RNA sequence: GAAACGCAAGGAGUAGUAUAGAGUGAGUACACCUUGAUGGAGGAGGCUCAGGUUGAAAUCCUGACUAUUGCGUUACAUCUUAGCCCCUUAAUUGGGGUUUUUUUGUG
Numbered sequence: 001g002a003a004a005c006g007c008a009a010g011g012a013g014u015a016g017u018a019u020a021g022a023g024u025g026a027g028u029a030c031a032c033c034u035u036g037a038u039g040g041a042g043g044a045g046g047c048u049c050a051g052g053u054u055g056a057a058a059u060c061c062u063g064a065c066u067a068u069u070g071c072g073u074u075a076c077a078u079c080u081u082a083g084c085c086c087c088u089u090a091a092u093u094g095g096g097g098u099u100u101u102u103u104u105g106u107g
Stems, first nucleotide, its partner, number of pairs: 003074007012066002032043004048064005082099006

Notes:
Rfam assigns this 107-nucleotide RNA sequence from Streptococcus dysgalactiae to the family "Streptococcus sRNA SpF41". NCBI's taxonomy places the organism under Bacteria, Bacilli, Lactobacillales, Streptococcus dysgalactiae, Streptococcus dysgalactiae subsp. equisimilis. Pairs were carried over by alignment from the consensus structure, which was predicted with mfold. It is annotated as a small RNA. Rfam's curators put it in the seed alignment.